[Rfam]
RNA sequence: UAACGAGAUAGAGGUGCAAAAUUCAAAAGUAAAAUUUAUGAGCUCGUCAAGGCUGUGAUUAAAUUUAAAAGGGAAGAUUGCCGAAUUUAUGUAAUUGACAAUUACAUAGGUGGGAUUACAAAUAAUAUUUGUAAUACUGUCAUUAUGAAACAUAAUGUUGUGCUAUUGGUUAG
Numbered sequence: 001u002a003a004c005g006a007g008a009u010a011g012a013g014g015u016g017c018a019a020a021a022u023u024c025a026a027a028a029g030u031a032a033a034a035u036u037u038a039u040g041a042g043c044u045c046g047u048c049a050a051g052g053c054u055g056u057g058a059u060u061a062a063a064u065u066u067a068a069a070a071g072g073g074a075a076g077a078u079u080g081c082c083g084a085a086u087u088u089a090u091g092u093a094a095u096u097g098a099c100a101a102u103u104a105c106a107u108a109g110g111u112g113g114g115a116u117u118a119c120a121a122a123u124a125a126u127a128u129u130u131g132u133a134a135u136a137c138u139g140u141c142a143u144u145a146u147g148a149a150a151c152a153u154a155a156u157g158u159u160g161u162g163c164u165a166u167u168g169g170u171u172a173g
Base pairs, nucleotide, nucleotide: 007167008166009165010164011163016081017080018079019078022075023074024073032066033065034064035063036062037061038060085111086110087109088108089107090106091105092104093103094102095101096100112138113137115135116134117133118132119131120130121129122128141157142156143155144154145153146152
RNA: Lysine riboswitch aptamer
Organism: Streptobacillus moniliformis